[Rfam]
RNA sequence: AUAAAUUGUUGAGAACCCCUUCAAUCAAGUAAUCGAAUGAUUCAAGGGGUUCUCACAA
Numbered sequence: 001a002u003a004a005a006u007u008g009u010u011g012a013g014a015a016c017c018c019c020u021u022c023a024a025u026c027a028a029g030u031a032a033u034c035g036a037a038u039g040a041u042u043c044a045a046g047g048g049g050u051u052c053u054c055a056c057a058a
Stems, first nucleotide, its partner, number of pairs: 010055012023042005
Source information:
Shown here is a 58-nucleotide RNA from Trifolium aureum, a member of the family "Plastid-ccsA-ndhD-1 3UTR RNA". Rfam classes the family as a cis-regulatory element. NCBI's taxonomy places the organism under Eukaryota, Streptophyta, Streptophytina, Gunneridae, Trifolium. The family's consensus secondary structure was predicted with LocARNA. Rfam's curators put it in the seed alignment. Plastid-ccsA-ndhD-1 is a non-coding RNA (ncRNA) recognised in plastids. It was found in the three prime untranslated region (3UTR) of ccsA and ndhD genes, its 3UTR location suggests a role in transcript maturation.